[Rfam]
This 103-nucleotide sequence from Trifolium pratense belongs to the Rfam family "Small nucleolar RNA Z279/snoR105/snoR108".

RNA sequence: GGGAUAUGAUGAGUGGUUGAGUCUUGCACUAAUAUGCAAGUUGGGUGUUUGCCCCAAGCCUGGUUACGACAAUUGGGCACCCUCCAUUAACCAAUCUGAUCCC
Numbered sequence: 001g002g003g004a005u006a007u008g009a010u011g012a013g014u015g016g017u018u019g020a021g022u023c024u025u026g027c028a029c030u031a032a033u034a035u036g037c038a039a040g041u042u043g044g045g046u047g048u049u050u051g052c053c054c055c056a057a058g059c060c061u062g063g064u065u066a067c068g069a070c071a072a073u074u075g076g077g078c079a080c081c082c083u084c085c086a087u088u089a090a091c092c093a094a095u096c097u098g099a100u101c102c103c
Stems, first nucleotide, its partner, number of pairs: 001103004014093005023040005043082007061075004
A reference for the family is Marker et al. (2002), "Experimental RNomics: identification of 140 candidates for small non-messenger RNAs in the plant Arabidopsis thaliana", Curr Biol. By type it is a C/D-box small nucleolar RNA. It scores 92 bits against the family's covariance model. About the family: This family includes the plant snoRNAs known as Z279, snoR105 and snoR108.